c-di-GMP-I riboswitch aptamer: an 86-nucleotide RNA sequence from Sporomusa malonica. The source organism's lineage runs through Bacteria, Bacillati, Selenomonadales, Sporomusaceae and Sporomusa. Rfam links the family to the GO term cyclic-di-GMP binding. It scores 81 bits against the family's covariance model.

RNA sequence: UUUUAGAAUCGGCAAACUUAUCGAAAGGUAAGGACGCAAAGCUAUGGGUCUAAGGGCAAAAAGCCUAUGAUUGCCAGGUUGCCGUU
Numbered sequence: 001u002u003u004u005a006g007a008a009u010c011g012g013c014a015a016a017c018u019u020a021u022c023g024a025a026a027g028g029u030a031a032g033g034a035c036g037c038a039a040a041g042c043u044a045u046g047g048g049u050c051u052a053a054g055g056g057c058a059a060a061a062a063g064c065c066u067a068u069g070a071u072u073g074c075c076a077g078g079u080u081g082c083c084g085u086u
Stems, first nucleotide, its partner, number of pairs: 012037002017032006040080004045076003048071003055065003